[Rfam]
mir-5928 microRNA precursor family: a 75-nucleotide sequence from Haemonchus placei. Its family is annotated with miRNA-mediated post-transcriptional gene silencing and RISC complex in the Gene Ontology. The source organism's lineage runs through Eukaryota, Opisthokonta, Rhabditina, Rhabditomorpha and Haemonchus. The family's consensus secondary structure was predicted with RNAalifold.

RNA sequence: GGCACAAACUUGAGGUAGAGUAGAUCAGUAUGGUCAUGGGACCCUAAUCAACUAUUCUGCUUCAAGUUUGUGCCC
Numbered sequence: 001g002g003c004a005c006a007a008a009c010u011u012g013a014g015g016u017a018g019a020g021u022a023g024a025u026c027a028g029u030a031u032g033g034u035c036a037u038g039g040g041a042c043c044c045u046a047a048u049c050a051a052c053u054a055u056u057c058u059g060c061u062u063c064a065a066g067u068u069u070g071u072g073c074c075c
Stems, first nucleotide, its partner, number of pairs: 001074009011064013025050001027048001029046002032043004

Rfam 15.1 lists 1,672 matches to the family in 12 species.